[Rfam]
RNA: c-di-GMP-I riboswitch aptamer
Nucleotides: 086
Stems, first nucleotide, its partner, number of pairs: 012037002017032006040080002043077001045076003048071003055065004
Number, partner (000 for none) and nucleotide at each position: 001000u002000u003000c004000a005000g006000a007000a008000a009000a010000a011000g012037g013036c014000a015000a016000a017032c018031u019030a020029a021028u022027u023000g024000a025000a026000a027022a028021a029020u030019u031018a032017g033000g034000a035000c036013g037012c038000a039000a040080a041079g042000u043077c044000a045076c046075a047074g048071a049070u050069c051000u052000a053000a054000c055065g056064u057063a058062a059000c060000u061000a062058u063057u064056a065055c066000u067000a068000a069050g070049a071048u072000g073000g074047c075046u076045g077043g078000u079041c080040u081000a082000c083000c084000u085000g086000a